[Rfam]
RNA sequence: CGGGGGGGGGGGGGUCCCUCAGCCCAGAUUGUGAGAGGGUACAGGCCAGGCCAAGGGACCCCACAGGUGCACA
Numbered sequence: 001c002g003g004g005g006g007g008g009g010g011g012g013g014g015u016c017c018c019u020c021a022g023c024c025c026a027g028a029u030u031g032u033g034a035g036a037g038g039g040u041a042c043a044g045g046c047c048a049g050g051c052c053a054a055g056g057g058a059c060c061c062c063a064c065a066g067g068u069g070c071a072c073a
Stems, first nucleotide, its partner, number of pairs: 002070001005068001009064001011062009022051003027046001029044005
Dot-bracket structure: .(..(...(.(((((((((..(((..(.(((((......))))).)..)))..))))))))).)...).)...
RNA: mir-9193 microRNA precursor family
Organism: Myotis lucifugus